[Rfam]
RNA sequence: GAACCGGGUAUCCGGAACCGAAUACCCGGAACCGGGUACUCGGAACCGGGUACCCG
Numbered sequence: 001g002a003a004c005c006g007g008g009u010a011u012c013c014g015g016a017a018c019c020g021a022a023u024a025c026c027c028g029g030a031a032c033c034g035g036g037u038a039c040u041c042g043g044a045a046c047c048g049g050g051u052a053c054c055c056g
Base pairs, nucleotide, nucleotide: 005028006027007026008025009024010023011022013020014019033056034055035054036053037052038051039050040049041048042047
RNA: Pseudomonas sRNA P36
Organism: Brassicogethes aeneus